The record is a 69-nucleotide RNA sequence from Crossiella cryophila, which matches "ASpks TB sRNA" in Rfam.
The base pairs follow the family's consensus structure, which is taken from published work.
A search with the family's covariance model found it, with a score of 62 bits.
The family's RNA type in Rfam is antisense RNA.
Lineage of the source: Bacteria > Bacillati > Pseudonocardiales > Pseudonocardiaceae > Crossiella.
A reference for the family is Arnvig and Young (2009), "Identification of small RNAs in Mycobacterium tuberculosis", Mol Microbiol.
[Rfam]
RNA sequence: CUUCACCGAGCCCAGCCACAGCGGGGUUUCCCGGUCCUGGCCAUAGGCGGCGAGUACCGCCUGGGCCUC
Numbered sequence: 001c002u003u004c005a006c007c008g009a010g011c012c013c014a015g016c017c018a019c020a021g022c023g024g025g026g027u028u029u030c031c032c033g034g035u036c037c038u039g040g041c042c043a044u045a046g047g048c049g050g051c052g053a054g055u056a057c058c059g060c061c062u063g064g065g066c067c068u069c
Base pairs, nucleotide, nucleotide: 016024017023029065030064031063032059033058037054038053041050042049